This 173-nucleotide RNA from Thermanaeromonas toyohensis belongs to the Rfam family "Group II catalytic intron D1-D4-3". Pairs were carried over by alignment from the consensus structure.
Nucleotides: 173
Stems, first nucleotide, its partner, number of pairs: 001016006028173001030171002035166002040160006046151005062146006073138003078133006086114004092107004
Number, partner (000 for none) and nucleotide at each position: 001016u002015c003014c004013g005012c006011c007000g008000u009000g010000a011006g012005g013004c014003g015002g016001a017000a018000u019000c020000c021000g022000a023000a024000g025000g026000a027000a028173g029000c030171c031170g032000g033000c034000g035166g036165c037000a038000a039000a040160c041159c042158u043157c044156c045155g046151g047150u048149c049148c050147g051000a052000c053000g054000a055000a056000c057000a058000g059000g060000a061000a062146c063145c064144g065143c066142a067141u068000a069000g070000g071000a072000g073138g074137c075136u076000a077000a078133c079132a080131g081130c082129a083128g084000u085000u086114g087113g088112a089111u090000g091000a092107g093106c094105u095104u096000g097000c098000g099000a100000a101000c102000c103000a104095a105094a106093g107092c108000g109000a110000a111089g112088u113087c114086c115000u116000u117000g118000c119000u120000a121000c122000c123000g124000a125000a126000g127000g128083c129082u130081g131080c132079u133078g134000a135000g136075a137074g138073u139000a140000u141067a142066u143065g144064c145063g146062g147050c148049g149048g150047a151046u152000g153000g154000a155045u156044g157043g158042a159041g160040g161000g162000a163000a164000a165036g166035u167000c168000a169000a170031c171030g172000c173028u